A member of the RNA family "Streptococcus sRNA SpF22" from Streptococcus peroris, 138 nucleotides long. For this family Rfam cites "Control of virulence by small RNAs in Streptococcus pneumoniae" (Mann et al., PLoS Pathog, 2012). Rfam classes the family as a small RNA.
RNA sequence: AGCGUUCGGCACGUGCUUGCCAAUUUCUAUCAGAACAAGGCUAUGACGUUAUCAAUGUCCAAGGUGGCAUGGAUGCUUUAGAAUAAGAAAACUCUCUUUGGAGCCGAAAUUAAGAAAAGGUCCCAAAGGGAAUUUUUU
Numbered sequence: 001a002g003c004g005u006u007c008g009g010c011a012c013g014u015g016c017u018u019g020c021c022a023a024u025u026u027c028u029a030u031c032a033g034a035a036c037a038a039g040g041c042u043a044u045g046a047c048g049u050u051a052u053c054a055a056u057g058u059c060c061a062a063g064g065u066g067g068c069a070u071g072g073a074u075g076c077u078u079u080a081g082a083a084u085a086a087g088a089a090a091a092c093u094c095u096c097u098u099u100g101g102a103g104c105c106g107a108a109a110u111u112a113a114g115a116a117a118a119g120g121u122c123c124c125a126a127a128g129g130g131a132a133u134u135u136u137u138u
Base pairs, nucleotide, nucleotide: 008021009020010019011018032136033135034134035133038078039077040076041075046070048068049067050066051065052064053063093131094130095129096128097127098126099125100124101123104120105119